[Rfam]
RNA sequence: UUUAGGUACGGAGACAUGGUACCAAAAACUAUCGCUGGAAAGAUUUUUGGUUCCAUUUGCUCCCUUAGCGGCGUGCUGGUGAUCGCUCUGCCAGUUCCAGUCAUCGUCUCCAAC
Numbered sequence: 001u002u003u004a005g006g007u008a009c010g011g012a013g014a015c016a017u018g019g020u021a022c023c024a025a026a027a028a029c030u031a032u033c034g035c036u037g038g039a040a041a042g043a044u045u046u047u048u049g050g051u052u053c054c055a056u057u058u059g060c061u062c063c064c065u066u067a068g069c070g071g072c073g074u075g076c077u078g079g080u081g082a083u084c085g086c087u088c089u090g091c092c093a094g095u096u097c098c099a100g101u102c103a104u105c106g107u108c109u110c111c112a113a114c
Stems, first nucleotide, its partner, number of pairs: 002113001005110001008107004013102003018097002021095002037077002040074001049063002

Rfam assigns this 114-nucleotide sequence from Oryzias latipes to the family "Potassium channel RNA editing signal". Rfam's curators write: This family represents a group of sequences related to the human potassium channel Kv1.1 hairpin element which directs the efficient modification of an adenosine to inosine by an adenosine deaminase acting on RNA (ADAR). The ADAR modification causes an isoleucine/valine recoding event which lies in the ion-conducting pore of the potassium channel. Its family is annotated with adenosine to inosine editing in the Gene Ontology. The family's consensus secondary structure is taken from published work.